[Rfam]
RNA sequence: UCACGGUGCGUCUAGGGUUCCGAUUCGGCUGCGGCCGGGUGCUGGUCCGAGAGAGGCAGCCCGGCCCCCACAGGACCGGGUACACGGCGGGACAAAAGCCCGGGAGAU
Numbered sequence: 001u002c003a004c005g006g007u008g009c010g011u012c013u014a015g016g017g018u019u020c021c022g023a024u025u026c027g028g029c030u031g032c033g034g035c036c037g038g039g040u041g042c043u044g045g046u047c048c049g050a051g052a053g054a055g056g057c058a059g060c061c062c063g064g065c066c067c068c069c070a071c072a073g074g075a076c077c078g079g080g081u082a083c084a085c086g087g088c089g090g091g092a093c094a095a096a097a098g099c100c101c102g103g104g105a106g107a108u
Base pairs, nucleotide, nucleotide: 007058008057009056011054012053015048016047020045021044022042023040024039025038026037027036028035059081060080061079062078063077064076066074083103085106089101090100091099
Dot-bracket structure: ......(((.((..((...(((((((((......)))))).).)).))....)).)))((((((.(.......).)))))).(.[...(((.......))).)..]..
Record summary
This 108-nucleotide sequence from Immundisolibacter cernigliae belongs to the Rfam family "Guanidine-I riboswitch aptamer". Pairs were carried over by alignment from the consensus structure.